tRNA: an 87-nucleotide RNA from Methanothermus fervidus. The family's RNA type in Rfam is transfer RNA. The base pairs follow the family's consensus structure, which is taken from published work. Taxonomically the source falls in Methanothermus (Archaea, Methanobacteriota, Methanobacteriales, Methanothermaceae). It is one of the family's seed sequences.
RNA sequence: GCCGGGGUGGCCCAGCCUGGUAGGGCGUCGGCCUGCUAAGCCGAUGAUCCGUUAAGGAUCGCGCGGGUUCAAAUCCCGUCCCCGGCG
Numbered sequence: 001g002c003c004g005g006g007g008u009g010g011c012c013c014a015g016c017c018u019g020g021u022a023g024g025g026c027g028u029c030g031g032c033c034u035g036c037u038a039a040g041c042c043g044a045u046g047a048u049c050c051g052u053u054a055a056g057g058a059u060c061g062c063g064c065g066g067g068u069u070c071a072a073a074u075c076c077c078g079u080c081c082c083c084g085g086c087g
Stems, first nucleotide, its partner, number of pairs: 001086007010026004028044005063079005